[Rfam]
RNA sequence: ACAUACUUUGUGUAUGUUCCGGUUCUUCCGCGCUGGCCGACACCAGCUGAACGCAGCUCGCGACGUUUUUAGAUCG
Numbered sequence: 001a002c003a004u005a006c007u008u009u010g011u012g013u014a015u016g017u018u019c020c021g022g023u024u025c026u027u028c029c030g031c032g033c034u035g036g037c038c039g040a041c042a043c044c045a046g047c048u049g050a051a052c053g054c055a056g057c058u059c060g061c062g063a064c065g066u067u068u069u070u071a072g073a074u075c076g
Base pairs, nucleotide, nucleotide: 002016003015004014005013006012020035021034022033023032025030048073051070053068
The record is a 76-nucleotide RNA sequence from Hafnia alvei, which matches "Xanthomonas sRNA sX9" in Rfam.
The family's RNA type in Rfam is small RNA.
The family's consensus secondary structure was predicted with RNAalifold.
The literature on the family includes a 2011 paper in Nucleic Acids Res by Schmidtke et al., "Genome-wide transcriptome analysis of the plant pathogen Xanthomonas identifies sRNAs with putative virulence functions".
A search with the family's covariance model found it, with a score of 47 bits.